[Rfam]
RNA sequence: CUUACAGAGUUUAUUGGCAUUCUGUCCACCUCCUAAACUGAAUUACUUCUUACAAGAAGAAAAUUAAAAUUAAGUUUCUAGUUAAUUUGUGUGUUGUGUGGAGGAGGUGGACAUACUGCCAACUGAGCUCUGUGGG
Numbered sequence: 001c002u003u004a005c006a007g008a009g010u011u012u013a014u015u016g017g018c019a020u021u022c023u024g025u026c027c028a029c030c031u032c033c034u035a036a037a038c039u040g041a042a043u044u045a046c047u048u049c050u051u052a053c054a055a056g057a058a059g060a061a062a063a064u065u066a067a068a069a070u071u072a073a074g075u076u077u078c079u080a081g082u083u084a085a086u087u088u089g090u091g092u093g094u095u096g097u098g099u100g101g102a103g104g105a106g107g108u109g110g111a112c113a114u115a116c117u118g119c120c121a122a123c124u125g126a127g128c129u130c131u132g133u134g135g136g
Stems, first nucleotide, its partner, number of pairs: 011126001014122006023113011

A member of the RNA family "MIR394 microRNA precursor family" from Handroanthus impetiginosus, 136 nucleotides long. The literature on the family includes a 2004 paper in Mol Cell by Jones-Rhoades and Bartel, "Computational identification of plant microRNAs and their targets, including a stress-induced miRNA". The family has 19 seed sequences and 724 matches in Rfam 15.1. The match comes from Rfam's covariance-model search (88 bits).